[Rfam]
RNA: Plastid-ycf2 5UTR RNA
RNA sequence: GUGCAUCCAGUAGGAAUUGAACCUACGAAUUCACCAAUAAUAAGUUAGGUGCUUUAAUCAUUCAGCUAUGAAUAC
Numbered sequence: 001g002u003g004c005a006u007c008c009a010g011u012a013g014g015a016a017u018u019g020a021a022c023c024u025a026c027g028a029a030u031u032c033a034c035c036a037a038u039a040a041u042a043a044g045u046u047a048g049g050u051g052c053u054u055u056a057a058u059c060a061u062u063c064a065g066c067u068a069u070g071a072a073u074a075c
Stems, first nucleotide, its partner, number of pairs: 003075001005073002008070001010026005040069003044066003048062004